Description: Shown here is a 98-nucleotide sequence from Zingiber officinale, a member of the family "MIR535 microRNA precursor family". Rfam 15.1 lists 544 matches to the family in 108 species.

RNA sequence: AUGCUUAUUUGACAACGAGAGAGAGCACGCCGGUCCAUGAUCAUGGCCGCCGCCAUGGCUGUGUGUACCAGCGUGCUCUUUCUCGUUGUCAACUGGGC
Number, nucleotide and partner (000 for none) at each position: 001a000002u000003g000004c000005u000006u000007a000008u000009u000010u091011g090012a089013c088014a087015a000016c085017g084018a000019g000020a081021g080022a000023g078024a000025g076026c075027a074028c073029g072030c071031c000032g069033g068034u067035c000036c000037a000038u000039g000040a000041u000042c000043a000044u000045g000046g000047c000048c000049g000050c000051c000052g000053c000054c000055a000056u000057g000058g000059c000060u000061g000062u000063g000064u000065g000066u000067a034068c033069c032070a000071g030072c029073g028074u027075g026076c025077u000078c023079u000080u021081u020082c000083u000084c017085g016086u000087u014088g013089u012090c011091a010092a000093c000094u000095g000096g000097g000098c000

On this family, see Zeng et al., Nucleic Acids Res 2010: "Conservation and divergence of microRNAs and their functions in Euphorbiaceous plants".